[Rfam]
Annotation:
The family of this 77-nucleotide sequence from Catagonus wagneri is "mir-30 microRNA precursor family". The literature on the family includes a 2001 paper in Science by Lagos-Quintana et al., "Identification of novel genes coding for small expressed RNAs". Pairs were carried over by alignment from the consensus structure, which was predicted with PFOLD. About the family: This family consists of the mammalian microRNA (miRNA) precursor mir-30a. It scores 73 bits against the family's covariance model.
RNA sequence: UGAGCGGCUGUAAACAUCCUCGACUGGAAGCUGUGAGGCUGCAGACAGGCUUUCAGUCGGAUGUUUGCAGCGGCUGA
Numbered sequence: 001u002g003a004g005c006g007g008c009u010g011u012a013a014a015c016a017u018c019c020u021c022g023a024c025u026g027g028a029a030g031c032u033g034u035g036a037g038g039c040u041g042c043a044g045a046c047a048g049g050c051u052u053u054c055a056g057u058c059g060g061a062u063g064u065u066u067g068c069a070g071c072g073g074c075u076g077a
Stems, first nucleotide, its partner, number of pairs: 003075003008070012023057010